[Rfam]
RNA sequence: AUUGGACCAACUUCUGUUGGUGAGAGAGACAAGCUUUCAAGCUUAGAGCUCUCUCACCAAUAGAAGUUGGUCCAAU
Numbered sequence: 001a002u003u004g005g006a007c008c009a010a011c012u013u014c015u016g017u018u019g020g021u022g023a024g025a026g027a028g029a030c031a032a033g034c035u036u037u038c039a040a041g042c043u044u045a046g047a048g049c050u051c052u053c054u055c056a057c058c059a060a061u062a063g064a065a066g067u068u069g070g071u072c073c074a075a076u
Stems, first nucleotide, its partner, number of pairs: 001076004005071001007070009017060006026053004
This 76-nucleotide RNA from Platysternon megacephalum belongs to the Rfam family "mir-29 microRNA precursor family". The literature on the family includes a 2001 paper in Cell by Ambros, "microRNAs: tiny regulators with great potential". The match comes from Rfam's covariance-model search (47 bits). The family's consensus secondary structure was predicted with PFOLD. Rfam describes the family as follows. This family represents the microRNA (miRNA) precursors mir-29.